[Rfam]
RNA: Metazoan signal recognition particle RNA
Organism: Mesorhabditis belari
RNA sequence: GCCGAGCGUCGUGGCGGGCGCUUGUGAGCCAGUUUCUUGGCGGCAGGGUGUGGUGGAUGGAGUGAGGUUGGGAUCACUGGCGGCCCUCGCCGUACCGGAGACCGGAAAUCCGCAACAAGCGAUGCGUCGCCAGGGGUCACUGCUCUGAUGAGCGGUGGUCCCGGGCGGUCAAGGAGAGGCGUACGGCUCAGGCCCGAAAGGGAGCAGGCAGAAGCCUCCGCGCGUUGACAGUGUUCGGACAGUUUCCGCGAGGUAUGGCAGGUUGUCAGCCCGGCUAAGACCUUCGGACCCACAUCCAU
Numbered sequence: 001g002c003c004g005a006g007c008g009u010c011g012u013g014g015c016g017g018g019c020g021c022u023u024g025u026g027a028g029c030c031a032g033u034u035u036c037u038u039g040g041c042g043g044c045a046g047g048g049u050g051u052g053g054u055g056g057a058u059g060g061a062g063u064g065a066g067g068u069u070g071g072g073a074u075c076a077c078u079g080g081c082g083g084c085c086c087u088c089g090c091c092g093u094a095c096c097g098g099a100g101a102c103c104g105g106a107a108a109u110c111c112g113c114a115a116c117a118a119g120c121g122a123u124g125c126g127u128c129g130c131c132a133g134g135g136g137u138c139a140c141u142g143c144u145c146u147g148a149u150g151a152g153c154g155g156u157g158g159u160c161c162c163g164g165g166c167g168g169u170c171a172a173g174g175a176g177a178g179g180c181g182u183a184c185g186g187c188u189c190a191g192g193c194c195c196g197a198a199a200g201g202g203a204g205c206a207g208g209c210a211g212a213a214g215c216c217u218c219c220g221c222g223c224g225u226u227g228a229c230a231g232u233g234u235u236c237g238g239a240c241a242g243u244u245u246c247c248g249c250g251a252g253g254u255a256u257g258g259c260a261g262g263u264u265g266u267c268a269g270c271c272c273g274g275c276u277a278a279g280a281c282c283u284u285c286g287g288a289c290c291c292a293c294a295u296c297c298a299u
Stems, first nucleotide, its partner, number of pairs: 001044003004023007028041003046297008058286005066276007077269008087261001089259008103248007110238002114235004119229001120227008128167004133162013169173001176218005186209003193202003